[Rfam]
RNA sequence: UUUUAGCCCUGAUGGAAACGAUAUCCUCUUGUGGCGGGGUUCGCCACAAGAGAUAAAGUGUACAGCAGGAAAGGGC
Numbered sequence: 001u002u003u004u005a006g007c008c009c010u011g012a013u014g015g016a017a018a019c020g021a022u023a024u025c026c027u028c029u030u031g032u033g034g035c036g037g038g039g040u041u042c043g044c045c046a047c048a049a050g051a052g053a054u055a056a057a058g059u060g061u062a063c064a065g066c067a068g069g070a071a072a073g074g075g076c
Base pairs, nucleotide, nucleotide: 009068010067011066013064014063018059019058023054024053025052028050029049030048031047032046033045034044035043

The family of this 76-nucleotide RNA sequence from Flavobacterium crassostreae is "Flavo-1 RNA". NCBI's taxonomy places the organism under Bacteria, Bacteroidota, Flavobacteriia, Flavobacteriaceae, Flavobacterium. Rfam classes the family as a small RNA.